[Rfam]
RNA: mir-83 microRNA precursor family
RNA sequence: ACCUAUUGGAUCCUGAAUUUGUUUGAGUGCUGGAUAGAAUAUAGCAAAAUCUCUAGCACCAUUUAAAUUCAGUAUUCCAACCG
Numbered sequence: 001a002c003c004u005a006u007u008g009g010a011u012c013c014u015g016a017a018u019u020u021g022u023u024u025g026a027g028u029g030c031u032g033g034a035u036a037g038a039a040u041a042u043a044g045c046a047a048a049a050u051c052u053c054u055a056g057c058a059c060c061a062u063u064u065a066a067a068u069u070c071a072g073u074a075u076u077c078c079a080a081c082c083g
Stems, first nucleotide, its partner, number of pairs: 013072009024061002027059002030056002033053002035049001